[Rfam]
This 76-nucleotide sequence from Calidris pygmaea belongs to the Rfam family "Small nucleolar RNA SNORD47". It is annotated as a C/D-box small nucleolar RNA.
RNA sequence: GACCACUGAUGAAGCUUGAUUCUGCCAAAUGAAUUAUGGUGAUAUCACAAUUCCCGUUCUACUUUUCUCUGAGGUU
Numbered sequence: 001g002a003c004c005a006c007u008g009a010u011g012a013a014g015c016u017u018g019a020u021u022c023u024g025c026c027a028a029a030u031g032a033a034u035u036a037u038g039g040u041g042a043u044a045u046c047a048c049a050a051u052u053c054c055c056g057u058u059c060u061a062c063u064u065u066u067c068u069c070u071g072a073g074g075u076u
Stems, first nucleotide, its partner, number of pairs: 001076004
Its family is annotated with RNA processing and nucleolus in the Gene Ontology.
A reference for the family is Huttenhofer et al. (2001), "RNomics: an experimental approach that identifies 201 candidates for novel, small, non-messenger RNAs in mouse", EMBO J.
The match comes from Rfam's covariance-model search (59 bits).